RNA sequence: UCCGUUCAACGGCAAACCCGGAGCAAUCCGGCGACGCAAAGCCAUGGAUCCACGUCGGCCCCCUCAAGGGGCGGCGGGGACAGCCAGGUUACCGAA
Numbered sequence: 001u002c003c004g005u006u007c008a009a010c011g012g013c014a015a016a017c018c019c020g021g022a023g024c025a026a027u028c029c030g031g032c033g034a035c036g037c038a039a040a041g042c043c044a045u046g047g048a049u050c051c052a053c054g055u056c057g058g059c060c061c062c063c064u065c066a067a068g069g070g071g072c073g074g075c076g077g078g079g080a081c082a083g084c085c086a087g088g089u090u091a092c093c094g095a096a
Base pairs, nucleotide, nucleotide: 012037013036018031019030020029021028022027040090041089042088043087045086046085047084049080050079
The record is a 96-nucleotide RNA from Geomonas silvestris, which matches "c-di-GMP-I riboswitch aptamer" in Rfam. The family's consensus secondary structure is taken from published work. It scores 56 bits against the family's covariance model. From the family's description: GEMM was predicted in a large-scale screen for bacterial structured RNA regulatory elements. Taxonomically the source falls in Geomonas (Bacteria, Pseudomonadati, Thermodesulfobacteriota, Geobacteraceae).